[Rfam]
Shown here is a 156-nucleotide RNA sequence from Populus deltoides, a member of the family "MIR2912 microRNA precursor family". It scores 138 bits against the family's covariance model. Rfam 15.1 lists 15,051 matches to the family in 15 species.

RNA sequence: UCUAGAACUCGAGAUAUGAGCUGAACAUUAAACAGUGUCUGGGCUGCAGGACAAAUUUUGACUUCUCUUUUGUUGCUACAAUUUGAACUUGAAAACGGCCGUUUUGAAUCCUUGACUCUUUAUGAAAGUUAUAGGCUUAUGUCUUAACUUUCCAUC
Numbered sequence: 001u002c003u004a005g006a007a008c009u010c011g012a013g014a015u016a017u018g019a020g021c022u023g024a025a026c027a028u029u030a031a032a033c034a035g036u037g038u039c040u041g042g043g044c045u046g047c048a049g050g051a052c053a054a055a056u057u058u059u060g061a062c063u064u065c066u067c068u069u070u071u072g073u074u075g076c077u078a079c080a081a082u083u084u085g086a087a088c089u090u091g092a093a094a095a096c097g098g099c100c101g102u103u104u105u106g107a108a109u110c111c112u113u114g115a116c117u118c119u120u121u122a123u124g125a126a127a128g129u130u131a132u133a134g135g136c137u138u139a140u141g142u143c144u145u146a147a148c149u150u151u152c153c154a155u156c
Stems, first nucleotide, its partner, number of pairs: 003154001005152003009146001011145010021134003025130001027129003035123003041119003045115001048112004054105002058101001060099001062098002068092002072088003